This 201-nucleotide RNA sequence from Virgibacillus sp. SK37 belongs to the Rfam family "Bacillus sRNA ncr1575". The family's RNA type in Rfam is small RNA. A reference for the family is Irnov et al. (2010), "Identification of regulatory RNAs in Bacillus subtilis", Nucleic Acids Res. A search with the family's covariance model found it, with a score of 126 bits. Pairs were carried over by alignment from the consensus structure, which is taken from published work. NCBI's taxonomy places the organism under Bacteria, Bacillati, Bacilli, Bacillaceae, Virgibacillus.
RNA sequence: UUAAUUAAGUAGAAAGGAAUGAUGGGUGGACAAUGGAUAACUAAUCUUAUUUUUUAGUAUUUGAAAUAGUAAUUUCGAAGACUGCAAAAUUAGGAUUAGUGUGCCCAUUUUUCUAUGAACGGAAUGGCUAUUUAUGUGAAUAGCUUAUUUUGGCACUGUUAAAUGCAACUAAUCCUUCCAAUUACCUGGGAGGAUUUUUUU
Numbered sequence: 001u002u003a004a005u006u007a008a009g010u011a012g013a014a015a016g017g018a019a020u021g022a023u024g025g026g027u028g029g030a031c032a033a034u035g036g037a038u039a040a041c042u043a044a045u046c047u048u049a050u051u052u053u054u055u056a057g058u059a060u061u062u063g064a065a066a067u068a069g070u071a072a073u074u075u076c077g078a079a080g081a082c083u084g085c086a087a088a089a090u091u092a093g094g095a096u097u098a099g100u101g102u103g104c105c106c107a108u109u110u111u112u113c114u115a116u117g118a119a120c121g122g123a124a125u126g127g128c129u130a131u132u133u134a135u136g137u138g139a140a141u142a143g144c145u146u147a148u149u150u151u152g153g154c155a156c157u158g159u160u161a162a163a164u165g166c167a168a169c170u171a172a173u174c175c176u177u178c179c180a181a182u183u184a185c186c187u188g189g190g191a192g193g194a195u196u197u198u199u200u201u
Stems, first nucleotide, its partner, number of pairs: 016113004023107004030100002042098008051089004060079008121150002127144007171196010
Dot-bracket structure: ...............((((...((((...((..........((((((((.((((.....((((((((....))))))))......)))).))))))))))...))))..)))).......((....(((((((....)))))))....))....................((((((((((......)))))))))).....